[Rfam]
RNA sequence: UGGCCUCUGCCCCACCUGGGGCCACAGAUGCUCCAGGGGAACAUCUCUAGCACCUGCAGUGAGAAGGCUUGACGUGUACAG
Numbered sequence: 001u002g003g004c005c006u007c008u009g010c011c012c013c014a015c016c017u018g019g020g021g022c023c024a025c026a027g028a029u030g031c032u033c034c035a036g037g038g039g040a041a042c043a044u045c046u047c048u049a050g051c052a053c054c055u056g057c058a059g060u061g062a063g064a065a066g067g068c069u070u071g072a073c074g075u076g077u078a079c080a081g
Stems, first nucleotide, its partner, number of pairs: 001024007025056003029052004035048004
The family of this 81-nucleotide sequence from Propithecus coquereli is "SAM-Chlorobi RNA". Pairs were carried over by alignment from the consensus structure, which is taken from published work.